[Rfam]
RNA sequence: UGGUAUCCUGCUUCAACAGUGCUUGAACAGAGCCU
Numbered sequence: 001u002g003g004u005a006u007c008c009u010g011c012u013u014c015a016a017c018a019g020u021g022c023u024u025g026a027a028c029a030g031a032g033c034c035u
Stems, first nucleotide, its partner, number of pairs: 002034003006031002010028001012027005017021001